Description
Rfam assigns this 79-nucleotide sequence from Callorhinchus milii to the family "Small nucleolar RNA SNORD53/SNORD92". Its family is annotated with RNA processing and nucleolus in the Gene Ontology. The family's RNA type in Rfam is C/D-box small nucleolar RNA. The match comes from Rfam's covariance-model search (58 bits). The organism belongs to Callorhinchus, within Eukaryota.
[Rfam]
RNA sequence: GUGCAGUGAUGACUUCAGAAGGUUUCGCUAAGUUUCUGACAAAAUCAAUCAGAUGACAUUUCCUUGGCUGUCUGAGCAC
Numbered sequence: 001g002u003g004c005a006g007u008g009a010u011g012a013c014u015u016c017a018g019a020a021g022g023u024u025u026c027g028c029u030a031a032g033u034u035u036c037u038g039a040c041a042a043a044a045u046c047a048a049u050c051a052g053a054u055g056a057c058a059u060u061u062c063c064u065u066g067g068c069u070g071u072c073u074g075a076g077c078a079c
Stems, first nucleotide, its partner, number of pairs: 001079004